[Rfam]
RNA: FMN riboswitch aptamer (RFN element)
RNA sequence: ACAGUUCUUCGGGGUCAGUGAAAAUCUGAGCCGGCGGUUAUAGUCCGCGACCCGCGUAAAAGCCCUGCAUCCAGCAGGGCGGCUUUGGGCGGUUGAUUUGGUGAAAUUCCAGAACCGACGGUCAUAGUCCGGAUGGGAGAAGAACUAA
Numbered sequence: 001a002c003a004g005u006u007c008u009u010c011g012g013g014g015u016c017a018g019u020g021a022a023a024a025u026c027u028g029a030g031c032c033g034g035c036g037g038u039u040a041u042a043g044u045c046c047g048c049g050a051c052c053c054g055c056g057u058a059a060a061a062g063c064c065c066u067g068c069a070u071c072c073a074g075c076a077g078g079g080c081g082g083c084u085u086u087g088g089g090c091g092g093u094u095g096a097u098u099u100g101g102u103g104a105a106a107u108u109c110c111a112g113a114a115c116c117g118a119c120g121g122u123c124a125u126a127g128u129c130c131g132g133a134u135g136g137g138a139g140a141a142g143a144a145c146u147a148a
Base pairs, nucleotide, nucleotide: 003146004145005144006143007142008141009140010139016028017027018026030128031127032117033116034048035047036046037045043115044114052092053091054090055089097113098112099111100110101109119131120130121129